A member of the RNA family "Bacterial large subunit ribosomal RNA" from Candidatus Tremblayella princeps, 584 nucleotides of a longer RNA.
RNA sequence: CCCACGGCUAGACGGAAAGACCCCGUGAACCUUUACUGCAGCUUUGUACGGAGCUUUGAGGCUGGGCGCGUAGGAUAUGUGGGAGACUAUGAAGCCGGGCAACAGCUCAGCUGAGUCGCAGGUGAAAUACCACUCACCCCGCCUCAACCCUCUAACCAGCGCCAUUACCUGGCGCUGGGACAGUGCAUGGUAGGCAGUUUGACUGGGGCGGUCUCCUCCCAAAGUGUAACGGAGGAGCACAAAGGUACGCUAAGCACGGUUGGCAAUCGUGCCGAAAGUGCAAUGGCAUAAGCGUGCUUGACUGCGAGACAAACGUGUCGAGCAGAUGCGAAAGCAGGUCAUAGUGAUCCGGUGGUUCUGUAUGGAAGGGCCAUCGCUCAACGGAUAAAAGGUACUCCGGGGAUAACAGGCUUAUACCGCUCGAGAGUUCUUAUCGACAGCGGUGUUUGGCACCUCGAUGUCGGCUCAUCUCGUCCUGGGGCUGCAGCAGGUCCCAAGGGUAUGGCUGUUCGCCAUUUAAAGAGGUACGUGAGCUGGGUUUAAAACGUCGUGAGACAGUUUGGUCCCUAUCUACCGUGGGCGUU
Number, nucleotide and partner (000 for none) at each position: 001c580002c579003c578004a577005c576006g575007g574008c000009u000010a572011g571012a570013c000014g567015g566016a000017a000018a000019g000020a000021c000022c401023c400024c399025g398026u000027g397028a396029a393030c392031c391032u390033u389034u000035a198036c197037u196038g195039c000040a000041g000042c190043u189044u000045u187046g186047u185048a184049c000050g000051g152052a151053g150054c000055u000056u147057u146058g145059a144060g143061g142062c141063u000064g139065g138066g137067c000068g135069c000070g000071u000072a000073g000074g000075a000076u000077a000078u000079g133080u132081g131082g130083g000084a000085g117086a116087c115088u000089a000090u000091g000092a000093a000094g111095c110096c000097g108098g107099g106100c105101a000102a000103c000104a000105g100106c099107u098108c097109a000110g095111c094112u000113g000114a000115g087116u086117c085118g000119c000120a000121g000122g000123u000124g000125a000126a000127a000128u000129a000130c082131c081132a080133c079134u000135c068136a000137c066138c065139c064140c000141g062142c061143c060144u059145c058146a057147a056148c000149c000150c053151u052152c051153u000154a000155a000156c178157c177158a176159g175160c174161g173162c172163c171164a170165u000166u000167a000168c000169c000170u164171g163172g162173c161174g160175c159176u158177g157178g156179g000180a000181c000182a000183g000184u048185g047186c046187a045188u000189g043190g042191u000192a000193g000194g000195c038196a037197g036198u035199u000200u000201g213202a212203c211204u210205g000206g000207g000208g000209c000210g204211g203212u202213c201214u236215c235216c234217u233218c232219c231220c000221a000222a000223a000224g000225u000226g000227u000228a000229a000230c000231g219232g218233a217234g216235g215236a214237g382238c000239a339240c338241a000242a000243a000244g000245g297246u296247a295248c294249g293250c292251u277252a000253a000254g272255c271256a270257c269258g268259g267260u000261u000262g000263g000264c000265a000266a000267u259268c258269g257270u256271g255272c254273c000274g000275a000276a000277a251278g287279u286280g000281c000282a000283a000284u000285g000286g279287c278288a000289u000290a000291a000292g250293c249294g248295u247296g246297c245298u000299u000300g000301a000302c325303u324304g323305c322306g000307a000308g319309a318310c317311a000312a000313a000314c000315g000316u000317g310318u309319c308320g000321a000322g305323c304324a303325g302326a000327u336328g335329c334330g000331a000332a000333a000334g329335c328336a327337g000338g240339u239340c000341a000342u000343a000344g000345u000346g000347a000348u000349c000350c376351g375352g374353u373354g372355g371356u370357u000358c369359u368360g000361u000362a000363u000364g000365g000366a000367a000368g359369g358370g356371c355372c354373a353374u352375c351376g350377c000378u000379c000380a000381a000382c237383g000384g000385a000386u000387a000388a000389a033390a032391g031392g030393u029394a000395c000396u028397c027398c025399g024400g023401g022402g000403a000404u000405a000406a000407c000408a000409g000410g451411c450412u449413u000414a448415u445416a444417c443418c442419g441420c440421u439422c000423g000424a000425g435426a434427g000428u000429u000430c000431u000432u000433a000434u426435c425436g000437a000438c000439a421440g420441c419442g418443g417444u416445g415446u000447u000448u414449g412450g411451c410452a000453c000454c000455u000456c000457g000458a000459u000460g000461u000462c537463g535464g534465c533466u532467c529468a526469u525470c524471u523472c522473g000474u000475c500476c499477u000478g495479g494480g493481g492482c491483u490484g000485c000486a000487g000488c000489a000490g483491g482492u481493c480494c479495c478496a000497a000498g000499g476500g475501u000502a516503u515504g514505g513506c512507u000508g000509u000510u000511c000512g506513c505514c504515a503516u502517u000518u000519a000520a000521a000522g472523a471524g470525g469526u468527a000528c000529g467530u000531g000532a466533g465534c464535u463536g000537g462538g000539u000540u000541u000542a000543a561544a560545a559546c558547g556548u555549c554550g000551u000552g000553a000554g549555a548556c547557a000558g546559u545560u544561u543562g000563g000564u000565c000566c015567c014568u000569a000570u012571c011572u010573a000574c007575c006576g005577u004578g003579g002580g001581c000582g000583u000584u000

Taxonomically the source falls in Candidatus Tremblayella (Bacteria, Pseudomonadati, Pseudomonadota, Betaproteobacteria).